[Rfam]
Guanidine-I riboswitch aptamer: a 113-nucleotide RNA sequence from Marivita hallyeonensis. Rfam's curators write: This family represents a conserved RNA structure found upstream of the ykkC and yxkD genes in Bacillus subtilis and related genes in other bacteria. The function of this family is unclear although it has been suggested that it may function to switch on efflux pumps and detoxification systems in response to harmful environmental molecules. The pairing is the family consensus, mapped onto this sequence. The source organism's lineage runs through Bacteria, Alphaproteobacteria, Rhodobacterales, Roseobacteraceae and Marivita.

RNA sequence: GAGCAGCGCAUCUAGGGUUCCGCCUCAUUCGUUGUUGUGAGGGACUGGUCCGAGAGAUGCCGCCGCUGCGGCAAAUUCCGCGCGGUACACGGCGGGGCAAAAUCCCGGGAGAG
Numbered sequence: 001g002a003g004c005a006g007c008g009c010a011u012c013u014a015g016g017g018u019u020c021c022g023c024c025u026c027a028u029u030c031g032u033u034g035u036u037g038u039g040a041g042g043g044a045c046u047g048g049u050c051c052g053a054g055a056g057a058u059g060c061c062g063c064c065g066c067u068g069c070g071g072c073a074a075a076u077u078c079c080g081c082g083c084g085g086u087a088c089a090c091g092g093c094g095g096g097g098c099a100a101a102a103u104c105c106c107g108g109g110a111g112a113g
Stems, first nucleotide, its partner, number of pairs: 008060005015051002020048002022045001023042006062086005068081003088108001090111001094106003